RNA sequence: CCGGGUGCCGAACUGGCCCGGAGAUGCCGAGGGCGCCGGCUCGAUUCCGGCGCUUCUCAUGAUCAAAUUGCUUUGAGGAGGAUUUGGCUAUGAGGA
Numbered sequence: 001c002c003g004g005g006u007g008c009c010g011a012a013c014u015g016g017c018c019c020g021g022a023g024a025u026g027c028c029g030a031g032g033g034c035g036c037c038g039g040c041u042c043g044a045u046u047c048c049g050g051c052g053c054u055u056c057u058c059a060u061g062a063u064c065a066a067a068u069u070g071c072u073u074u075g076a077g078g079a080g081g082a083u084u085u086g087g088c089u090a091u092g093a094g095g096a
Stems, first nucleotide, its partner, number of pairs: 001021006008015001030055002033053007056094006063087007071080003
Dot-bracket structure: ((((((.(......)))))))........((.(((((((.......)))))))))((((((.(((((((.(((....)))))))))).))))))..
A member of the RNA family "Repression of heat shock gene expression (ROSE) element" from Alterirhizorhabdus solaris, 96 nucleotides long.
NCBI's taxonomy places the organism under Bacteria, Pseudomonadati, Pseudomonadota, Rhizorhabdaceae, Alterirhizorhabdus.
A reference for the family is Nocker et al. (2001), "A mRNA-based thermosensor controls expression of rhizobial heat shock genes", Nucleic Acids Res.
This family represents a 5' UTR cis-regulatory element found in heat shock mRNAs and is known as the ROSE (repression of heat shock gene expression) element. The ROSE element is a negative regulator of heat shock gene expression. The secondary structure is thought to be regulated by temperature.
The family has 13 seed sequences and 381 matches in Rfam 15.1.